[Rfam]
RNA sequence: AAAGAACGCCGCCGGAUAACGCAAGGGUGUGUCACCAGCGUCUUAGACGCGGCAGUUGCGCCGGGAGUUCUUUCUAUA
Numbered sequence: 001a002a003a004g005a006a007c008g009c010c011g012c013c014g015g016a017u018a019a020c021g022c023a024a025g026g027g028u029g030u031g032u033c034a035c036c037a038g039c040g041u042c043u044u045a046g047a048c049g050c051g052g053c054a055g056u057u058g059c060g061c062c063g064g065g066a067g068u069u070c071u072u073u074c075u076a077u078a
Stems, first nucleotide, its partner, number of pairs: 001073007010065001012064004020060005026036004039049003
This 78-nucleotide RNA belongs to the Rfam family "DUF3800-VII RNA".